Rfam assigns this 130-nucleotide sequence from Paenibacillus zeisoli to the family "azaaromatic riboswitch aptamer (yjdF RNA)".

[Rfam]
RNA sequence: CCAUGAAGGCGUAAAAACACAGUCCGGUUGGUAGUCCGGACCUCUCUAUGGUCAUAAGCGUGUCAUCCGCUCAACUGUAAGGGAGCAGUAACCUUCCCCCCUCGGGAUGUCCCUCGCUUUCGUAAGAACA
Dot-bracket structure: ...((((((((..........((((((........))))))((((((................................)))))).........((((.....)))).......))))))))........
It scores 82 bits against the family's covariance model.